A member of the RNA family "Burkholderia sRNA Bp1_Cand871_SIPHT" from Mycetohabitans endofungorum, 221 nucleotides long. By type it is a small RNA. The source organism's lineage runs through Bacteria, Pseudomonadati, Betaproteobacteria, Burkholderiales and Mycetohabitans. On this family, see Khoo et al., BMC Genomics 2012: "Computational discovery and RT-PCR validation of novel Burkholderia conserved and Burkholderia pseudomallei unique sRNAs".
[Rfam]
Nucleotides: 221
Base pairs, nucleotide, nucleotide: 005161006160007159020129022128023127024126025125026124027123028122029121030120031119033117034116035115036114037113038112039079040078041077043074045072046071047070048069049068050067052065053064054063055062082094083093084092085091086090097111098110099109100108134142165190166189168187169186170185171184172183173182174181196214197213198212199211200210201209202208203207
Number, partner (000 for none) and nucleotide at each position: 001000u002000c003000g004000c005161u006160c007159a008000g009000a010000a011000u012000g013000c014000u015000u016000c017000c018000g019000a020129u021000g022128g023127g024126c025125u026124c027123c028122a029121a030120c031119a032000c033117g034116g035115a036114u037113g038112u039079g040078g041077u042000c043074u044000g045072a046071u047070g048069u049068g050067u051000c052065g053064u054063a055062u056000g057000a058000g059000c060000g061000g062055a063054u064053a065052c066000g067050a068049c069048g070047c071046g072045u073000g074043a075000a076000g077041a078040c079039c080000g081000g082094u083093c084092g085091g086090c087000a088000c089000u090086g091085c092084c093083g094082a095000a096000g097111c098110c099109c100108u101000c102000u103000u104000g105000c106000g107000c108100a109099g110098g111097g112038g113037c114036a115035u116034c117033c118000u119031u120030g121029u122028u123027g124026g125025a126024g127023c128022c129020g130000c131000g132000u133000c134142a135000g136000a137000c138000g139000c140000g141000g142134u143000a144000a145000c146000g147000c148000a149000a150000c151000g152000c153000c154000a155000c156000c157000c158000a159007u160006g161005g162000u163000c164000u165190c166189c167000u168187c169186g170185c171184g172183c173182u174181a175000a176000c177000c178000c179000c180000g181174u182173a183172g184171c185170g186169u187168g188000u189166g190165g191000u192000u193000u194000u195000u196214a197213g198212c199211g200210g201209g202208c203207u204000u205000u206000g207203a208202g209201c210200c211199c212198g213197c214196u215000u216000u217000u218000u219000u220000u221000u